[Rfam]
mir-544 microRNA precursor family: a 94-nucleotide RNA from Odocoileus virginianus. For this family Rfam cites "Mammalian microRNAs: experimental evaluation of novel and previously annotated genes" (Chiang et al., Genes Dev, 2010). Pairs were carried over by alignment from the consensus structure, which was predicted with RNAalifold.

RNA sequence: GACACCUGGGAUUUUGUUAAAAUGAAGAUUCUGAUUCAAUAGAUCUUCAGUGUCCAAGAAUCUGCAUUUCUAGCAAGUUCCCAGGUGAUGCCAA
Number, nucleotide and partner (000 for none) at each position: 001g000002a000003c087004a086005c085006c000007u000008g081009g080010g079011a000012u000013u077014u076015u075016g074017u073018u072019a071020a069021a068022a067023u000024g065025a000026a063027g062028a061029u000030u059031c058032u057033g000034a000035u000036u000037c000038a000039a000040u000041a000042g000043a000044u000045c000046u000047u000048c000049a000050g000051u000052g000053u000054c000055c000056a000057a032058g031059a030060a000061u028062c027063u026064g000065c024066a000067u022068u021069u020070c000071u019072a018073g017074c016075a015076a014077g013078u000079u010080c009081c008082c000083a000084g000085g005086u004087g003088a000089u000090g000091c000092c000093a000094a000